[Rfam]
RNA sequence: ACUCUCUCAGCUCUGCUCAACUUUACCUCGUCAGUGGUACGGUUGUCGUUAAUCGGGAGAGACAGUGAACAGAGCACUGUAAUGCACGGCAGGAAGACGCCCCCUAGCGGCCUUUCUGUUCCCUUCUCUGUGCUCCACAUGC
Numbered sequence: 001a002c003u004c005u006c007u008c009a010g011c012u013c014u015g016c017u018c019a020a021c022u023u024u025a026c027c028u029c030g031u032c033a034g035u036g037g038u039a040c041g042g043u044u045g046u047c048g049u050u051a052a053u054c055g056g057g058a059g060a061g062a063c064a065g066u067g068a069a070c071a072g073a074g075c076a077c078u079g080u081a082a083u084g085c086a087c088g089g090c091a092g093g094a095a096g097a098c099g100c101c102c103c104c105u106a107g108c109g110g111c112c113u114u115u116c117u118g119u120u121c122c123c124u125u126c127u128c129u130g131u132g133c134u135c136c137a138c139a140u141g142c
Stems, first nucleotide, its partner, number of pairs: 002067001004065002007062002011059004019044004024039003075132003079128001081124001084121001091117003097113001099111003
Dot-bracket structure: .(.((.((..((((....((((.(((..........))).))))...........)))).)).)).).......(((.(.(..(......(((...(.(((.......))).).)))...)..)...).)))..........
Small nucleolar RNA SNORA64/SNORA10 family: a 142-nucleotide RNA sequence from Megalops atlanticus.
This family belongs to the H/ACA class of small nucleolar RNAs (snoRNAs) which act as guides in the the modification of uridines to pseudouridines. This family includes the human snoRNAs U64 and ACA10 and mouse MBI-29.
For this family Rfam cites "Nucleolar localization signals of box H/ACA small nucleolar RNAs" (Narayanan et al., EMBO J, 1999).
The family's consensus secondary structure is taken from published work.
By type it is an H/ACA-box small nucleolar RNA.
Rfam links the family to the GO terms RNA processing and nucleolus.